This 80-nucleotide sequence from Caenorhabditis auriculariae belongs to the Rfam family "SmY spliceosomal RNA". It is annotated as a spliceosomal small nuclear RNA. For this family Rfam cites "A novel family of C. elegans snRNPs contains proteins associated with trans-splicing" (MacMorris et al., RNA, 2007).
[Rfam]
RNA sequence: GAAAAUCUAUUGAUAAUCCUGGGGCCUUCCAUAAGACCCUAUAGACAAAUUUUGGCAACCUUUACUAAACGUAAAGGUUA
Numbered sequence: 001g002a003a004a005a006u007c008u009a010u011u012g013a014u015a016a017u018c019c020u021g022g023g024g025c026c027u028u029c030c031a032u033a034a035g036a037c038c039c040u041a042u043a044g045a046c047a048a049a050u051u052u053u054g055g056c057a058a059c060c061u062u063u064a065c066u067a068a069a070c071g072u073a074a075a076g077g078u079u080a
Base pairs, nucleotide, nucleotide: 022039023038024037026035027034028033057079058078059077060076061075062074063073064072065071